[Rfam]
RNA: Eukaryotic small subunit ribosomal RNA, nucleotides 1 to 527
Organism: Spironucleus salmonicida
RNA sequence: UAUCUGGUUGACCCUGCCAGGAUAGCAUACUUCUCUUAAAGAUUAAGCCAUGCAUGCCUAUGUGUAGACAGUUAUAUUCAUUAUUGUGGAGCGAAGACGGCGAACAGCUCAUUUAUCAGUGGUUAGUACAUGCAAUGUAUUUCGUUGGAUAGUAACGGAAAAUCUGUUAGUAAUACAUGAACUAUGUUUAGUAUUCUACUAAAGAUAAUAGUAAGUACGUUUGCAUAUCUGCCACUGCAGCAUCAUCUUACGUUGGUGGGGUAUUUGCCUACCAAGGAUUCGACGCUUACGGGGAAUUAGGGUUUGACUCCGGAGAAUGAGCAUGAGAAACAGCUCAUACAUCUAAGGAAGGCAGCAGGCGCGGAAAUUGCCCAAUGUAUUCGUUACGAGGCAGUGACAAGAAAUGAAGGGUACUUUUGUACACCAUCUAGGGCCUGUUAUAUCUAAGCUAACCGGUUAUUCGUGGGAAAGCUCGGUGCCAGCAGCCGCGGUAAUUCCGACACGGAGAGUAUUCUAUUGUGUUGCUG
Numbered sequence: 001u002a003u004c005u006g007g008u009u010g011a012c013c014c015u016g017c018c019a020g021g022a023u024a025g026c027a028u029a030c031u032u033c034u035c036u037u038a039a040a041g042a043u044u045a046a047g048c049c050a051u052g053c054a055u056g057c058c059u060a061u062g063u064g065u066a067g068a069c070a071g072u073u074a075u076a077u078u079c080a081u082u083a084u085u086g087u088g089g090a091g092c093g094a095a096g097a098c099g100g101c102g103a104a105c106a107g108c109u110c111a112u113u114u115a116u117c118a119g120u121g122g123u124u125a126g127u128a129c130a131u132g133c134a135a136u137g138u139a140u141u142u143c144g145u146u147g148g149a150u151a152g153u154a155a156c157g158g159a160a161a162a163u164c165u166g167u168u169a170g171u172a173a174u175a176c177a178u179g180a181a182c183u184a185u186g187u188u189u190a191g192u193a194u195u196c197u198a199c200u201a202a203a204g205a206u207a208a209u210a211g212u213a214a215g216u217a218c219g220u221u222u223g224c225a226u227a228u229c230u231g232c233c234a235c236u237g238c239a240g241c242a243u244c245a246u247c248u249u250a251c252g253u254u255g256g257u258g259g260g261g262u263a264u265u266u267g268c269c270u271a272c273c274a275a276g277g278a279u280u281c282g283a284c285g286c287u288u289a290c291g292g293g294g295a296a297u298u299a300g301g302g303u304u305u306g307a308c309u310c311c312g313g314a315g316a317a318u319g320a321g322c323a324u325g326a327g328a329a330a331c332a333g334c335u336c337a338u339a340c341a342u343c344u345a346a347g348g349a350a351g352g353c354a355g356c357a358g359g360c361g362c363g364g365a366a367a368u369u370g371c372c373c374a375a376u377g378u379a380u381u382c383g384u385u386a387c388g389a390g391g392c393a394g395u396g397a398c399a400a401g402a403a404a405u406g407a408a409g410g411g412u413a414c415u416u417u418u419g420u421a422c423a424c425c426a427u428c429u430a431g432g433g434c435c436u437g438u439u440a441u442a443u444c445u446a447a448g449c450u451a452a453c454c455g456g457u458u459a460u461u462c463g464u465g466g467g468a469a470a471g472c473u474c475g476g477u478g479c480c481a482g483c484a485g486c487c488g489c490g491g492u493a494a495u496u497c498c499g500a501c502a503c504g505g506a507g508a509g510u511a512u513u514c515u516a517u518u519g520u521g522u523u524g525c526u527g
Stems, first nucleotide, its partner, number of pairs: 004020005022517004027512005034402004040395001041362001047360003051357003056101002061099003079091001108315003117237003122232002125230002131225004146177002153169006189201004211218002239287003246278003253275008290312004294305004317338006340351001342349002368393001370392003376388004409425002411422004433453001437449003460506006473500004482489002